[Rfam]
The family of this 137-nucleotide RNA from Geomicrobium halophilum is "FMN riboswitch aptamer (RFN element)". Pairs were carried over by alignment from the consensus structure, which is taken from published work. Its family is annotated with FMN binding in the Gene Ontology.
RNA sequence: UAUAAUCUUCGGGGCAGGGUGAAAUUCCCGACCGACGGUGAUGCGUCCAAAAUGACGACGAGUCCGUGACCCGCGCGAGCGGUGGAUCUGGUGUGAUUCCGGAACCGACAGUAAAGUCUGGAUGGGAGAAGAUUGCA
Numbered sequence: 001u002a003u004a005a006u007c008u009u010c011g012g013g014g015c016a017g018g019g020u021g022a023a024a025u026u027c028c029c030g031a032c033c034g035a036c037g038g039u040g041a042u043g044c045g046u047c048c049a050a051a052a053u054g055a056c057g058a059c060g061a062g063u064c065c066g067u068g069a070c071c072c073g074c075g076c077g078a079g080c081g082g083u084g085g086a087u088c089u090g091g092u093g094u095g096a097u098u099c100c101g102g103a104a105c106c107g108a109c110a111g112u113a114a115a116g117u118c119u120g121g122a123u124g125g126g127a128g129a130a131g132a133u134u135g136c137a
Base pairs, nucleotide, nucleotide: 003135004134005133006132007131008130009129010128017029018028019027031117032116033107034106035067036066037065038064062105063104071082072081087103088102089101090100091099109120110119111118